[Rfam]
RNA: Lysine riboswitch aptamer
RNA sequence: AGAAAAUCUAGAGGUUGCGAUUAUCAAGACUAUUUACUGAGUUUAAGGAAAUGCUGACGUAAAUAAUGAGGGAAAAUCGCCGAAAUGUUAAUUGAGUCCUUACUCAUUAAUGUUGGGGUUAUGGUGAACAGCUAUAACACUGUCUCAGUCGUCACUGAGUUGCGCUAGAGAAUUA
Numbered sequence: 001a002g003a004a005a006a007u008c009u010a011g012a013g014g015u016u017g018c019g020a021u022u023a024u025c026a027a028g029a030c031u032a033u034u035u036a037c038u039g040a041g042u043u044u045a046a047g048g049a050a051a052u053g054c055u056g057a058c059g060u061a062a063a064u065a066a067u068g069a070g071g072g073a074a075a076a077u078c079g080c081c082g083a084a085a086u087g088u089u090a091a092u093u094g095a096g097u098c099c100u101u102a103c104u105c106a107u108u109a110a111u112g113u114u115g116g117g118g119u120u121a122u123g124g125u126g127a128a129c130a131g132c133u134a135u136a137a138c139a140c141u142g143u144c145u146c147a148g149u150c151g152u153c154a155c156u157g158a159g160u161u162g163c164g165c166u167a168g169a170g171a172a173u174u175a
Stems, first nucleotide, its partner, number of pairs: 007169005017080006024073002031065007084114009094105003115141002118138008144159006